[Rfam]
RNA sequence: UGGCGCCGAAUGGUGAGGUGUGGAUAUGGGGGAAUUCGCGAGGGAAGAGGUGUUUAAUGGUUUGGCCGAACAAAGCAGAAAUCAGUUCAAGAAGGAUUGCCGCAGGAGCCUGCCGCACCGCUCUUAAAGGUACAGUAGCGCCUAACUAUGGGACAAGAAUUAAGUAAGCAUAAAGUUUUUGUUAAGCAAUUAAAAGAAGCUUUAAAGACACUGGGAGUAAAGGUUAAGAGUAAUGAUCUUUUUAAGUUUUUUGACCUUGUUAAGGACACCUGUCUGU
Numbered sequence: 001u002g003g004c005g006c007c008g009a010a011u012g013g014u015g016a017g018g019u020g021u022g023g024a025u026a027u028g029g030g031g032g033a034a035u036u037c038g039c040g041a042g043g044g045a046a047g048a049g050g051u052g053u054u055u056a057a058u059g060g061u062u063u064g065g066c067c068g069a070a071c072a073a074a075g076c077a078g079a080a081a082u083c084a085g086u087u088c089a090a091g092a093a094g095g096a097u098u099g100c101c102g103c104a105g106g107a108g109c110c111u112g113c114c115g116c117a118c119c120g121c122u123c124u125u126a127a128a129g130g131u132a133c134a135g136u137a138g139c140g141c142c143u144a145a146c147u148a149u150g151g152g153a154c155a156a157g158a159a160u161u162a163a164g165u166a167a168g169c170a171u172a173a174a175g176u177u178u179u180u181g182u183u184a185a186g187c188a189a190u191u192a193a194a195a196g197a198a199g200c201u202u203u204a205a206a207g208a209c210a211c212u213g214g215g216a217g218u219a220a221a222g223g224u225u226a227a228g229a230g231u232a233a234u235g236a237u238c239u240u241u242u243u244a245a246g247u248u249u250u251u252u253g254a255c256c257u258u259g260u261u262a263a264g265g266a267c268a269c270c271u272g273u274c275u276g277u
Stems, first nucleotide, its partner, number of pairs: 006032002013027003036050002039047001087126001096122001098120001102116002105113001136156001138154001141152004161204003164200002211253001213251006221239006262277001264275004